The family of this 75-nucleotide sequence from Asparagus officinalis is "Small nucleolar RNA snoR53Y". It is annotated as a C/D-box small nucleolar RNA. NCBI's taxonomy places the organism under Eukaryota, Tracheophyta, Petrosaviidae, Asparagales, Asparagus. The family is grouped with related families in Rfam's "snoR53 clan". It scores 60 bits against the family's covariance model.
RNA sequence: AUUCCCUAUGAGGAUCUUAUAGACCAUGCUAAUGCUGAUAAUCUGAUUAAUCGUUAUGCUCUUUCUGAGGGAAUC
Dot-bracket structure: (((((................................................................))))).